[Rfam]
RNA sequence: AAAAUUCGGAACGGCAAACUCCUCCUCCCAUUGUCGUUUCGAUGUGAUUGACAACCACCUCCUCCUCCCAGGUUGUCAAUUGUGCAAAAUGGCGCCCACCGGAUCCUCCUCCCCCGGUGGGCGUUGUUU
Dot-bracket structure: ......(((.(((((((.............))))))).)))....((((((((((................))))))))))..........(((((((((((...........))))))))))).....
RNA: Alphaproteobacterial ar14
Organism: Pseudohoeflea suaedae